Shown here is a 141-nucleotide RNA sequence from Strongylocentrotus purpuratus, a member of the family "U4 spliceosomal RNA". Pairs were carried over by alignment from the consensus structure, which is taken from published work. It is annotated as a spliceosomal small nuclear RNA. A reference for the family is Plaschka et al. (2017), "Structure of a pre-catalytic spliceosome", Nature.
RNA sequence: AUCUUUGCGCAGAGGCAGUAUCGUAGCCAAUGAGGUUUAUCCGAGGCGCGAUUAUUGCUAGUUGAAAACUUAUCCCAAUACCCCGCUCUGACGACGUGAAAUACCGUCGGCUGUAGCAAUUUUUCCAGAUCUCCAAGGAGA
Numbered sequence: 001a002u003c004u005u006u007g008c009g010c011a012g013a014g015g016c017a018g019u020a021u022c023g024u025a026g027c028c029a030a031u032g033a034g035g036u037u038u039a040u041c042c043g044a045g046g047c048g049c050g051a052u053u054a055u056u057g058c059u060a061g062u063u064g065a066a067a068a069c070u071u072a073u074c075c076c077a078a079u080a081c082c083c084c085g086c087u088c089u090g091a092c093g094a095c096g097u098g099a100a101a102u103a104c105c106g107u108c109g110g111c112u113g114u115a116g117c118a119a120u121u122u123u124u125c126c127a128g129a130u131c132u133c134c135a136a137g138g139a140g141a
Base pairs, nucleotide, nucleotide: 020052021051022050023049024048026047027046028045034042035041085117086116087115088113090111092109093108094107095106096104097103130141131140132139133138